[Rfam]
The record is a 65-nucleotide RNA from Dreissena polymorpha, which matches "mir-33 microRNA precursor family" in Rfam. Rfam 15.1 lists 1,467 matches to the family in 815 species. The match comes from Rfam's covariance-model search (56 bits). A reference for the family is Ahn et al. (2010), "MicroRNA transcriptome in the newborn mouse ovaries determined by massive parallel sequencing", Mol Hum Reprod.
RNA sequence: CUGUAGUGCAUUGUAGUUGCAUUGCGUGUGUAUUGGUGCACAAUGCUCCUGCAUUGCAAUAACAG
Numbered sequence: 001c002u003g004u005a006g007u008g009c010a011u012u013g014u015a016g017u018u019g020c021a022u023u024g025c026g027u028g029u030g031u032a033u034u035g036g037u038g039c040a041c042a043a044u045g046c047u048c049c050u051g052c053a054u055u056g057c058a059a060u061a062a063c064a065g
Stems, first nucleotide, its partner, number of pairs: 001065004007058004012053005019046001021044004026039002